RNA sequence: GACCACGUUCCUUUAAACUGCCAGGGGGCGGGCUCGAGCCUUCGGGCGAGUCCGCCCUUGGACGGCUUAUCCAACUCGGAGA
Numbered sequence: 001g002a003c004c005a006c007g008u009u010c011c012u013u014u015a016a017a018c019u020g021c022c023a024g025g026g027g028g029c030g031g032g033c034u035c036g037a038g039c040c041u042u043c044g045g046g047c048g049a050g051u052c053c054g055c056c057c058u059u060g061g062a063c064g065g066c067u068u069a070u071c072c073a074a075c076u077c078g079g080a081g082a
Stems, first nucleotide, its partner, number of pairs: 026057009038047003
Dot-bracket structure: .........................(((((((((...(((....))).))))))))).........................